[Rfam]
RNA sequence: CAACUGUGCAGACACCGAGCCCUCUCGCCCUAAGUUUUCUGCUGUGGCUGAGUAAUAAGGAGUGGGGGCCGUGGCAAUUUCGCCACCAGGGUUGCCGUAGAAAUGCGUCAGCCUCCCAUGCUUGGAAAGGUGCCCAUGACUCAACUUG
Numbered sequence: 001c002a003a004c005u006g007u008g009c010a011g012a013c014a015c016c017g018a019g020c021c022c023u024c025u026c027g028c029c030c031u032a033a034g035u036u037u038u039c040u041g042c043u044g045u046g047g048c049u050g051a052g053u054a055a056u057a058a059g060g061a062g063u064g065g066g067g068g069c070c071g072u073g074g075c076a077a078u079u080u081c082g083c084c085a086c087c088a089g090g091g092u093u094g095c096c097g098u099a100g101a102a103a104u105g106c107g108u109c110a111g112c113c114u115c116c117c118a119u120g121c122u123u124g125g126a127a128a129g130g131u132g133c134c135c136a137u138g139a140c141u142c143a144a145c146u147u148g
Base pairs, nucleotide, nucleotide: 011134013132014131015130016129019069020068021067022066023065024064026062029060030059034056035055036054071086072085073084074083075082089114090113091112092111093110094109096107097106098105099104115125116124
RNA: Molybdenum/Tungsten riboswitch aptamer (Moco RNA motif)